[Rfam]
RNA sequence: UGUAAGUAUUUUAUGAUUAACAAGCAGCUGUCUCUUGUACAGAUCGUUUAUUAAUCU
Numbered sequence: 001u002g003u004a005a006g007u008a009u010u011u012u013a014u015g016a017u018u019a020a021c022a023a024g025c026a027g028c029u030g031u032c033u034c035u036u037g038u039a040c041a042g043a044u045c046g047u048u049u050a051u052u053a054a055u056c057u
Base pairs, nucleotide, nucleotide: 018037019036020035022033024031025030
A member of the RNA family "Plastid-rps18 3UTR RNA" from Cynara cardunculus, 57 nucleotides long. By type it is a cis-regulatory element. Plastid rps18 is a non-coding RNA (ncRNA) present in plastids. It was identified as a short stem-loop motif in the 3 prime untranslate region (3UTR) of rps18 gene.